Record summary
The family of this 113-nucleotide RNA sequence from Panicum hallii is "mir-399 microRNA precursor family". mir-399 was identified in both Arabidopsis thaliana and Oryza sativa computationally and was later experimentally verified. mir-399 is thought to target mRNAs coding for a phosphatase transporter. The mature sequence is excised from the 3' arm of the hairpin. Taxonomically the source falls in Panicum hallii (Eukaryota, Tracheophyta, Magnoliopsida, commelinids). The match comes from Rfam's covariance-model search (60 bits).
RNA sequence: CUGUGGAUUACGGGGCAGUUCGUCUUUGGCACAAAGGCGCGAGGAUUCAGAAGUUCAGAUCGCUUGAGCUUCAGCGCAUGCGUGCCAAAGGAGAAUUGCCCUGCGAUCCGCCU
Numbered sequence: 001c002u003g004u005g006g007a008u009u010a011c012g013g014g015g016c017a018g019u020u021c022g023u024c025u026u027u028g029g030c031a032c033a034a035a036g037g038c039g040c041g042a043g044g045a046u047u048c049a050g051a052a053g054u055u056c057a058g059a060u061c062g063c064u065u066g067a068g069c070u071u072c073a074g075c076g077c078a079u080g081c082g083u084g085c086c087a088a089a090g091g092a093g094a095a096u097u098g099c100c101c102u103g104c105g106a107u108c109c110g111c112c113u
Base pairs, nucleotide, nucleotide: 005109006108007107008106009105011103012102013101014100015099016098017097018096019095021093023091024090027087028086029085030084031083032082035079